RNA: Bacterial RNase P class A
Nucleotides: 408
Base pairs, nucleotide, nucleotide: 001404002403003402004401005400006399007398008397009396010395011393013347014346015345016344017343018342020041021040022039023038024037025036026035027034028033046391047390048389050388051387052386053385054384055229056228057227058226062284063283064282065281067225068224069223070222071221072086073085074084075083076082087101088099089098090097091096102220103219107218108217109214110213111212124159125158126155127154128153129152130151131150132149133148134147135146136145137144138143167185168184169183170182171181172180187209188207189206190205191204192203193202194201195200233305234304235303236302264296265295266294267293268292269291276288277287278286279285312331313330314329315328316327317326318325319324
Number, partner (000 for none) and nucleotide at each position: 001404u002403g003402a004401g005400c006399u007398g008397a009396c010395c011393g012000g013347g014346c015345g016344g017343u018342c019000g020041c021040g022039g023038c024037g025036u026035c027034g028033g029000g030000a031000g032000a033028c034027c035026g036025g037024c038023g039022u040021c041020g042000a043000g044000g045000a046391a047390g048389g049000u050388c051387c052386g053385g054384g055229c056228u057227c058226c059000a060000c061000a062284g063283g064282g065281c066000a067225u068224g069223g070222u071221g072086g073085u074084g075083g076082g077000u078000a079000a080000c081000g082076c083075c084074c085073a086072c087101c088099c089098g090097g091096g092000g093000u094000g095000a096091c097090c098089c099088g100000c101087g102220g103219g104000a105000c106000a107218g108217u109214g110213c111212c112000a113000c114000a115000g116000a117000g118000a119000a120000c121000a122000g123000a124159c125158c126155g127154c128153c129152g130151u131150u132149g133148c134147u135146c136145g137144g138143c139000u140000c141000c142000g143138g144137c145136c146135g147134a148133g149132c150131g151130g152129c153128g154127g155126c156000a157000a158125g159124g160000g161000u162000g163000a164000a165000a166000c167185g168184g169183u170182g171181g172180u173000g174000u175000a176000a177000g178000a179000g180172a181171c182170c183169a184168c185167c186000a187209g188207c189206g190205c191204u192203c193202c194201g195200g196000g197000u198000g199000a200195c201194c202193g203192g204191a205190g206189c207188g208000g209187c210000u211000c212111g213110g214109u215000a216000a217108a218107c219103c220102c221071c222070a223069c224068c225067a226058g227057g228056a229055g230000c231000a232000a233305g234304a235303u236302c237000a238000a239000g240000a241000g242000g243000g244000c245000c246000g247000g248000u249000c250000c251000u252000g253000g254000a255000c256000c257000g258000g259000c260000c261000u262000g263000c264296g265295u266294g267293a268292g269291c270000g271000u272000u273000c274000g275000a276288g277287g278286g279285c280000g281065g282064c283063c284062c285279g286278c287277c288276c289000g290000a291269g292268c293267u294266c295265a296264c297000g298000g299000g300000u301000a302236g303235a304234u305233c306000g307000c308000a309000c310000g311000a312331g313330g314329c315328u316327g317326c318325c319324g320000g321000c322000a323000a324319c325318g326317g327316c328315a329314g330313u331312c332000c333000c334000a335000g336000a337000u338000g339000g340000a341000u342018g343017g344016c345015c346014g347013c348000a349000c350000a351000u352000c353000g354000c355000a356000g357000g358000u359000g360000a361000c362000c363000g364000c365000a366000a367000g368000g369000u370000c371000a372000g373000c374000g375000a376000g377000g378000a379000c380000a381000g382000a383000a384054c385053c386052c387051g388050g389048c390047c391046u392000a393011c394000a395010g396009g397008u398007c399006a400005g401004c402003u403002c404001a405000u406000c407000c408000g